Rfam assigns this 103-nucleotide RNA from Digitaria exilis to the family "Small nucleolar RNA snoR26".
The match comes from Rfam's covariance-model search (56 bits).
Gene Ontology terms of the family: nucleolus and RNA processing.
The base pairs follow the family's consensus structure, which was predicted with WAR.
Taxonomically the source falls in Digitaria (Eukaryota, Euphyllophyta, Mesangiospermae, Petrosaviidae).
It is annotated as a C/D-box small nucleolar RNA.

RNA sequence: GGAGCAUCUGUGAUGUACUACCUCUACAUUCAUCCUUGCACUUUGAGGGAAGGUUGCCCCUUUCUAUUGAAGAAAACAUUGGGGGGAAAGUUCUGAGAUGCUC
Numbered sequence: 001g002g003a004g005c006a007u008c009u010g011u012g013a014u015g016u017a018c019u020a021c022c023u024c025u026a027c028a029u030u031c032a033u034c035c036u037u038g039c040a041c042u043u044u045g046a047g048g049g050a051a052g053g054u055u056g057c058c059c060c061u062u063u064c065u066a067u068u069g070a071a072g073a074a075a076a077c078a079u080u081g082g083g084g085g086g087a088a089a090g091u092u093c094u095g096a097g098a099u100g101c102u103c
Stems, first nucleotide, its partner, number of pairs: 002103007